This 102-nucleotide RNA sequence from Lentibacillus kapialis belongs to the Rfam family "Purine riboswitch aptamer".
The family's consensus secondary structure is taken from published work.
RNA sequence: CGAAACAAUAUGAUUCAUCAUCGUAUAACUGCGGGAAUAUGGCCCGCAUGUCUCUACCAGGCUGCCUUAAACGGCCUAACUACGAGGGUGUUCAGGAUCACA
Number, nucleotide and partner (000 for none) at each position: 001c000002g000003a000004a000005a000006c000007a000008a000009u000010a000011u000012g000013a000014u000015u000016c000017a000018u088019c087020a000021u085022c084023g083024u082025a081026u000027a000028a000029c000030u048031g047032c046033g045034g044035g043036a000037a000038u000039a000040u000041g000042g000043c035044c034045c033046g032047c031048a030049u000050g000051u000052c000053u000054c000055u000056a000057c000058c000059a077060g076061g075062c074063u073064g072065c000066c000067u000068u000069a000070a000071a000072c064073g063074g062075c061076c060077u059078a000079a000080c000081u025082a024083c023084g022085a021086g000087g019088g018089u000090g000091u000092u000093c000094a000095g000096g000097a000098u000099c000100a000101c000102a000